[Rfam]
RNA sequence: ACGCUAAAUCGACUAGUGGAUGUCUUGGCUCAGGCACUGAUGAAGGUCGUGGCAAGCUGCGAUAAGCCUGGGCGAGGCGCAUGCAGCCUUUGAACCCAGGAUUGCCUAAUGGGACAUCCUGUCAUGGAAAACCCAUGACGCUCGCGUCAGCGAGCGGGAACCCCGCGAAAUGAAACAUCUUAGUACUGGGGGGAAGAGAAAGCAAAAGCGAUGCCCUUAGUAACGGCGAGUGAAGAGGGUACAGAGCAAACUGAAUCUGGUCGGGAAACCGACUGGAAAUGUGGAUAUGUAGGAGCCGGUCGCCAUCUCUUCAAAGAAGCUGAAUUCCACUGGAAUGUGGAGCCAAAGAGGGUGAUAGCCCUGUAAGCGUAAUUUGAAAGAUGAUGGACUGGCAUUCCUGAGUACCAUGCAUUGGAUCUUGCGUGGGAAGCUGGGAGUAACAACUCCCAACUCUAAAUAUGUCCUGAGACCGAUAGCGAACGUAGUACCGUGAGGGAAAGCUGAAAAGUAUCUCGCAAGGGAGAUGAAAAGAGCCUGAAACUAGUCGAUGGUAAAAG
Numbered sequence: 001a002c003g004c005u006a007a008a009u010c011g012a013c014u015a016g017u018g019g020a021u022g023u024c025u026u027g028g029c030u031c032a033g034g035c036a037c038u039g040a041u042g043a044a045g046g047u048c049g050u051g052g053c054a055a056g057c058u059g060c061g062a063u064a065a066g067c068c069u070g071g072g073c074g075a076g077g078c079g080c081a082u083g084c085a086g087c088c089u090u091u092g093a094a095c096c097c098a099g100g101a102u103u104g105c106c107u108a109a110u111g112g113g114a115c116a117u118c119c120u121g122u123c124a125u126g127g128a129a130a131a132c133c134c135a136u137g138a139c140g141c142u143c144g145c146g147u148c149a150g151c152g153a154g155c156g157g158g159a160a161c162c163c164c165g166c167g168a169a170a171u172g173a174a175a176c177a178u179c180u181u182a183g184u185a186c187u188g189g190g191g192g193g194a195a196g197a198g199a200a201a202g203c204a205a206a207a208g209c210g211a212u213g214c215c216c217u218u219a220g221u222a223a224c225g226g227c228g229a230g231u232g233a234a235g236a237g238g239g240u241a242c243a244g245a246g247c248a249a250a251c252u253g254a255a256u257c258u259g260g261u262c263g264g265g266a267a268a269c270c271g272a273c274u275g276g277a278a279a280u281g282u283g284g285a286u287a288u289g290u291a292g293g294a295g296c297c298g299g300u301c302g303c304c305a306u307c308u309c310u311u312c313a314a315a316g317a318a319g320c321u322g323a324a325u326u327c328c329a330c331u332g333g334a335a336u337g338u339g340g341a342g343c344c345a346a347a348g349a350g351g352g353u354g355a356u357a358g359c360c361c362u363g364u365a366a367g368c369g370u371a372a373u374u375u376g377a378a379a380g381a382u383g384a385u386g387g388a389c390u391g392g393c394a395u396u397c398c399u400g401a402g403u404a405c406c407a408u409g410c411a412u413u414g415g416a417u418c419u420u421g422c423g424u425g426g427g428a429a430g431c432u433g434g435g436a437g438u439a440a441c442a443a444c445u446c447c448c449a450a451c452u453c454u455a456a457a458u459a460u461g462u463c464c465u466g467a468g469a470c471c472g473a474u475a476g477c478g479a480a481c482g483u484a485g486u487a488c489c490g491u492g493a494g495g496g497a498a499a500g501c502u503g504a505a506a507a508g509u510a511u512c513u514c515g516c517a518a519g520g521g522a523g524a525u526g527a528a529a530a531g532a533g534c535c536u537g538a539a540a541c542u543a544g545u546c547g548a549u550g551g552u553a554a555a556a557g
Stems, first nucleotide, its partner, number of pairs: 008549009022535001024500001027471002029468006035461002044107004048061003067100006076088003111120003141154005161192001162190004172179002202209002213240005223231002243454004251284003261272004295393004305382002319368003325341001327340004344348001350362003405426007433448005488495002